[Rfam]
RNA sequence: ACCUUAUAUAAAUGUAUUAAACGCAAGACAGUUUAGCAUUUCCCUUUAAGGUAGUGUUAGUUAGAAACUUUAACGAUAAGUACUAUUGUGUAGCUUUAAGAGUUGAAAUAGUAUGAGUUAAAGUGGAAUAGGUUAACCGUAAGACCUUAAGUUGAUAAACUUUAAAAUUGAUUUUAUUAGUUUUUAUAACUAAUAAAUUACGGUGAA
Numbered sequence: 001a002c003c004u005u006a007u008a009u010a011a012a013u014g015u016a017u018u019a020a021a022c023g024c025a026a027g028a029c030a031g032u033u034u035a036g037c038a039u040u041u042c043c044c045u046u047u048a049a050g051g052u053a054g055u056g057u058u059a060g061u062u063a064g065a066a067a068c069u070u071u072a073a074c075g076a077u078a079a080g081u082a083c084u085a086u087u088g089u090g091u092a093g094c095u096u097u098a099a100g101a102g103u104u105g106a107a108a109u110a111g112u113a114u115g116a117g118u119u120a121a122a123g124u125g126g127a128a129u130a131g132g133u134u135a136a137c138c139g140u141a142a143g144a145c146c147u148u149a150a151g152u153u154g155a156u157a158a159a160c161u162u163u164a165a166a167a168u169u170g171a172u173u174u175u176a177u178u179a180g181u182u183u184u185u186a187u188a189a190c191u192a193a194u195a196a197a198u199u200a201c202g203g204u205g206a207a
Stems, first nucleotide, its partner, number of pairs: 001052006008045001010041006018035005023029001067124008081113007092104002095101001130147005136204006142168001149162005173197010